[Rfam]
Annotation: The family of this 61-nucleotide sequence from Mauremys mutica is "Ma3 gene ribosomal frameshift signal". On this family, see Wills et al., J Biol Chem 2006: "A functional -1 ribosomal frameshift signal in the human paraneoplastic Ma3 gene". Taxonomically the source falls in Mauremys (Eukaryota, Gnathostomata, Euteleostomi, Sauria). The family's consensus secondary structure is taken from published work.
RNA sequence: GGGAAACACCAAUAGGGCUUGGGGAAGGAGCAAACCCAAGACCCUGAAAUUCCAAGGCUCC
Numbered sequence: 001g002g003g004a005a006a007c008a009c010c011a012a013u014a015g016g017g018c019u020u021g022g023g024g025a026a027g028g029a030g031c032a033a034a035c036c037c038a039a040g041a042c043c044c045u046g047a048a049a050u051u052c053c054a055a056g057g058c059u060c061c
Stems, first nucleotide, its partner, number of pairs: 014045004018040006028060004